[Rfam]
RNA sequence: UAUAAACAGGCGAGAACCAUUUAAAUCACUAUACUACUUGAUUUAAAUGGUUCUCACAAACG
Dot-bracket structure: .........(.(((((((((((((((((..........))))))))))))))))).).....